[Rfam]
RNA sequence: AUGGCACACAAACCCAAAGUUCAUUAUUUUCCAUGUAUAAUGUUCUUGCUAUGUGUGCGCACAGGAAAACUCAAGGACCUUGUCGCCUUUCAUAAGCUGUGUUGUGCUAGUGAAAGUGAAUUCAAGGUUCAACAUAU
Dot-bracket structure: ...((((((.........(..((((((.........))))))..).......))))))................(((((((.....(((((((.(((........))).))))))).......))))))).......